About this RNA: Shown here is a 109-nucleotide RNA sequence from Terribacillus sp. AE2B 122, a member of the family "SAM riboswitch aptamer (S box leader)". The family's consensus secondary structure is taken from published work. A search with the family's covariance model found it, with a score of 82 bits.
RNA sequence: UUCUUAUUUAGAGAGAUGGAGGGACUGGCCCGAAGAAAUCUCGGCAGCGGAGCUUAUGUGAUUAAGUUGCUGUGCCAAAUCCAGCAAGCUGCGGCUUGAUAGAUAAGAA
Number, nucleotide and partner (000 for none) at each position: 001u109002u108003c107004u106005u105006a104007u103008u102009u000010a000011g000012a000013g042014a041015g040016a039017u038018g000019g000020a000021g031022g030023g029024a000025c084026u083027g082028g081029c023030c022031c021032g000033a000034a000035g000036a000037a000038a017039u016040c015041u014042c013043g076044g075045c074046a073047g000048c072049g071050g000051a068052g067053c066054u065055u000056a000057u000058g000059u000060g000061a000062u000063u000064a000065a054066g053067u052068u051069g000070c000071u049072g048073u046074g045075c044076c043077a000078a000079a000080u101081c028082c027083a026084g025085c098086a097087a096088g095089c094090u000091g000092c000093g000094g089095c088096u087097u086098g085099a000100u000101a080102g008103a007104u006105a005106a004107g003108a002109a001